The family of this 87-nucleotide RNA sequence is "skipping-rope RNA". It is one of the family's seed sequences. By type it is a small RNA.
RNA sequence: UAAAAUCUGAGGACGGAACAGGCGGCCGUCGCCAGAAAACCACAUGGUUUGAGUAGGAGAUGUGGGAAUGUCACCCCACCUAUUUUA
Numbered sequence: 001u002a003a004a005a006u007c008u009g010a011g012g013a014c015g016g017a018a019c020a021g022g023c024g025g026c027c028g029u030c031g032c033c034a035g036a037a038a039a040c041c042a043c044a045u046g047g048u049u050u051g052a053g054u055a056g057g058a059g060a061u062g063u064g065g066g067a068a069u070g071u072c073a074c075c076c077c078a079c080c081u082a083u084u085u086u087a
Base pairs, nucleotide, nucleotide: 001087002086003085004084005083006082009080012030013029014028015027016026021072022071023070024069032057037050038049039048040047062079063078064077065076066075
Dot-bracket structure: ((((((..(..(((((....[[[[.))))).(....((((......))))......)....(((((..]]]]..)))))).))))))